[Rfam]
RNA sequence: CUGCACCUGUGGAGGACGAAGCAUAUUUCUGUUUCUGGAGGAUUAUUUAUAAUCUGCCGGAAAGUCUUGCAGGUGGCUGGGAUAUGUUCAGUCUGGUAGAAUUAAGCACGCUUUAAUUCCUUCAAAGCAUUUU
Numbered sequence: 001c002u003g004c005a006c007c008u009g010u011g012g013a014g015g016a017c018g019a020a021g022c023a024u025a026u027u028u029c030u031g032u033u034u035c036u037g038g039a040g041g042a043u044u045a046u047u048u049a050u051a052a053u054c055u056g057c058c059g060g061a062a063a064g065u066c067u068u069g070c071a072g073g074u075g076g077c078u079g080g081g082a083u084a085u086g087u088u089c090a091g092u093c094u095g096g097u098a099g100a101a102u103u104a105a106g107c108a109c110g111c112u113u114u115a116a117u118u119c120c121u122u123c124a125a126a127g128c129a130u131u132u133u
Stems, first nucleotide, its partner, number of pairs: 005074007014094002017091001021087008063078004099119008

Rfam assigns this 133-nucleotide RNA sequence from Clostridium sp. CAG:590 to the family "RT-5 RNA".
The source organism's lineage runs through Bacteria, Bacillota, Eubacteriales, Clostridiaceae and Clostridium.
The match comes from Rfam's covariance-model search (58 bits).